Rfam assigns this 196-nucleotide RNA sequence from Paenibacillus selenitireducens to the family "c-di-AMP riboswitch aptamer (ydaO/yuaA leader)". NCBI's taxonomy places the organism under Bacteria, Bacillota, Bacilli, Caryophanales, Paenibacillus. The match comes from Rfam's covariance-model search (97 bits). The family has 106 seed sequences and 7,607 matches in Rfam 15.1.
RNA sequence: UCAUGAAUAUCACUGAGUCCUUGCAAAAGCAAGGAACGGGGGACCCAAUACAUCAUGAUGACGUGCGCUCGUGUGAGAGCGAGACCUGAUUCAUGUGGGGUGAAUCCUUAGACCACAACGCGUGUGGCGCUAAGGUAGGAUGACUCUCACCAUCCGAAUCCGACAGCUAACCUCGUAAGUGUAGGAGAGAGGAUGA
Numbered sequence: 001u002c003a004u005g006a007a008u009a010u011c012a013c014u015g016a017g018u019c020c021u022u023g024c025a026a027a028a029g030c031a032a033g034g035a036a037c038g039g040g041g042g043a044c045c046c047a048a049u050a051c052a053u054c055a056u057g058a059u060g061a062c063g064u065g066c067g068c069u070c071g072u073g074u075g076a077g078a079g080c081g082a083g084a085c086c087u088g089a090u091u092c093a094u095g096u097g098g099g100g101u102g103a104a105u106c107c108u109u110a111g112a113c114c115a116c117a118a119c120g121c122g123u124g125u126g127g128c129g130c131u132a133a134g135g136u137a138g139g140a141u142g143a144c145u146c147u148c149a150c151c152a153u154c155c156g157a158a159u160c161c162g163a164c165a166g167c168u169a170a171c172c173u174c175g176u177a178a179g180u181g182u183a184g185g186a187g188a189g190a191g192g193a194u195g196a
Stems, first nucleotide, its partner, number of pairs: 011181004018035007036176006046097002098161003106135006138155004
Dot-bracket structure: ..........((((...(((((((....)))))))((((((....((................................................))(((.....((((((..................))))))..((((..........))))...))).........)))))).))))...............